[Rfam]
RNA sequence: CUUGAUCAGAGUCUUCGUUCCUUGCAGAUCAUCCUCGGGAAGGUGCGUCCCUUGCACGCCACCUCGCCGAGAGC
Numbered sequence: 001c002u003u004g005a006u007c008a009g010a011g012u013c014u015u016c017g018u019u020c021c022u023u024g025c026a027g028a029u030c031a032u033c034c035u036c037g038g039g040a041a042g043g044u045g046c047g048u049c050c051c052u053u054g055c056a057c058g059c060c061a062c063c064u065c066g067c068c069g070a071g072a073g074c
Base pairs, nucleotide, nucleotide: 003031004030005029006028007027009023010022039055041053042052043051045050
A member of the RNA family "Actinobacteria sRNA Ms_AS-8" from Brachybacterium alimentarium, 74 nucleotides long. The family has 10 seed sequences and 99 matches in Rfam 15.1. Pairs were carried over by alignment from the consensus structure. For this family Rfam cites "Identification of small RNAs in Mycobacterium smegmatis using heterologous Hfq" (Li et al., RNA, 2013). The source organism's lineage runs through Bacteria, Actinomycetes, Micrococcales, Dermabacteraceae and Brachybacterium. It is annotated as a small RNA.